[Rfam]
RNA sequence: GCCGGGCGCGGUGGCGCACGCCUGUAGUCCCAGCUACUCGGGAGGCUGAGACAGGAGGAUCGCUUGAGUCCAGGAGUUCUGGGCUGUAGUGCGCUAUGCCGAUCGGGUGUCCGCACUAAGUUCGGCAUCAAUAUGGUGACCUCCCGGGAGCGGGGAGCCACCAGGUUGCCUAAGGAGGGGUGAACCGGCCCAGGUCGGAAACGGAGCAGGUCAAAACUCCCGUGCUGAUCAGUAGUGGGAUCGCGCCUGUGAAUAGCCACUGAUAUUGGAUUAAAGUCUCUUUCUU
Numbered sequence: 001g002c003c004g005g006g007c008g009c010g011g012u013g014g015c016g017c018a019c020g021c022c023u024g025u026a027g028u029c030c031c032a033g034c035u036a037c038u039c040g041g042g043a044g045g046c047u048g049a050g051a052c053a054g055g056a057g058g059a060u061c062g063c064u065u066g067a068g069u070c071c072a073g074g075a076g077u078u079c080u081g082g083g084c085u086g087u088a089g090u091g092c093g094c095u096a097u098g099c100c101g102a103u104c105g106g107g108u109g110u111c112c113g114c115a116c117u118a119a120g121u122u123c124g125g126c127a128u129c130a131a132u133a134u135g136g137u138g139a140c141c142u143c144c145c146g147g148g149a150g151c152g153g154g155g156a157g158c159c160a161c162c163a164g165g166u167u168g169c170c171u172a173a174g175g176a177g178g179g180g181u182g183a184a185c186c187g188g189c190c191c192a193g194g195u196c197g198g199a200a201a202c203g204g205a206g207c208a209g210g211u212c213a214a215a216a217c218u219c220c221c222g223u224g225c226u227g228a229u230c231a232g233u234a235g236u237g238g239g240a241u242c243g244c245g246c247c248u249g250u251g252a253a254u255a256g257c258c259a260c261u262g263a264u265a266u267u268g269g270a271u272u273a274a275a276g277u278c279u280c281u282u283u284c285u286u
Base pairs, nucleotide, nucleotide: 001046002045003044004023005022006021007020008019010017028043029042030041048286049285050284051283053281054280055279057277063276064275065274067272068271069270070269071268072267073266080263087262088261089260090259091258093257094256095255096254097253099251104249105248106247107246108245109244110243111239112238114237115236116235117234118233120230122228123227124226125225126224127223128222129168130167131166132165134163135162136161137160138159140157142155143154144153145152146151169175170174177220178219179218180217181216187212188211189210190209195204196203197202
RNA: Metazoan signal recognition particle RNA
Organism: Cricetulus griseus